[Rfam]
RNA sequence: GAUGUGGUAUCGGGAGAGACUGUAACGGCAUGGCCGCAAACAGCGCCGAAGGAGCAACCGCCCCGGAAACUCUCAGGCAAAAGGACCGAUACUGCUGU
Numbered sequence: 001g002a003u004g005u006g007g008u009a010u011c012g013g014g015a016g017a018g019a020c021u022g023u024a025a026c027g028g029c030a031u032g033g034c035c036g037c038a039a040a041c042a043g044c045g046c047c048g049a050a051g052g053a054g055c056a057a058c059c060g061c062c063c064c065g066g067a068a069a070c071u072c073u074c075a076g077g078c079a080a081a082a083g084g085a086c087c088g089a090u091a092c093u094g095c096u097g098u
Stems, first nucleotide, its partner, number of pairs: 006093008020043004045078003048074002052072003058066002
Shown here is a 98-nucleotide sequence from Pseudomonas saudiphocaensis, a member of the family "Glycine riboswitch aptamer".